[Rfam]
RNA sequence: UGUUUUGUUUUCUAGGGUUCCGCAGCUGCUAAAUAGGCUGGCUGGUCCGAGGGAAAACGCAUGAAUCUGUGAAUGUGCAGGCUCGUGUCUACACGGAGGGAUAAAAGCCCGGGAGGA
Numbered sequence: 001u002g003u004u005u006u007g008u009u010u011u012c013u014a015g016g017g018u019u020c021c022g023c024a025g026c027u028g029c030u031a032a033a034u035a036g037g038c039u040g041g042c043u044g045g046u047c048c049g050a051g052g053g054a055a056a057a058c059g060c061a062u063g064a065a066u067c068u069g070u071g072a073a074u075g076u077g078c079a080g081g082c083u084c085g086u087g088u089c090u091a092c093a094c095g096g097a098g099g100g101a102u103a104a105a106a107g108c109c110c111g112g113g114a115g116g117a
Base pairs, nucleotide, nucleotide: 007058008057009056010055011054012053015048016047020045021044022042023040024039025038026037027036059090060087061086062085063084064083092112094115098110099109100108
Notes
The family of this 117-nucleotide RNA sequence from Paenibacillus monticola is "Guanidine-I riboswitch aptamer". The match comes from Rfam's covariance-model search (72 bits). Rfam's curators write: This family represents a conserved RNA structure found upstream of the ykkC and yxkD genes in Bacillus subtilis and related genes in other bacteria. The function of this family is unclear although it has been suggested that it may function to switch on efflux pumps and detoxification systems in response to harmful environmental molecules. The base pairs follow the family's consensus structure. For this family Rfam cites "Structural Basis for Ligand Binding to the Guanidine-I Riboswitch" (Reiss et al., Structure, 2017).